Annotation: The family of this 100-nucleotide RNA is "L4-Archaeoglobi ribosomal protein leades". The sequence is in the family's curated seed alignment. By type it is a cis-regulatory leader.
RNA sequence: CUGACGGGCGCGUACGGGUCAAUUGCGGCUUGCAACACCCGAUCUCGCUCGUCGUCCCUCCGCAAAUGGAGGUCGACGAGGGGGAGCGCGUAACAGUCAG
Numbered sequence: 001c002u003g004a005c006g007g008g009c010g011c012g013u014a015c016g017g018g019u020c021a022a023u024u025g026c027g028g029c030u031u032g033c034a035a036c037a038c039c040c041g042a043u044c045u046c047g048c049u050c051g052u053c054g055u056c057c058c059u060c061c062g063c064a065a066a067u068g069g070a071g072g073u074c075g076a077c078g079a080g081g082g083g084g085a086g087c088g089c090g091u092a093a094c095a096g097u098c099a100g
Base pairs, nucleotide, nucleotide: 001100002099003098004097005096008091009090010089011088012087013086015041016040017039018038023035024034025033026032027031043085044084045083046082052079053078054077055076056075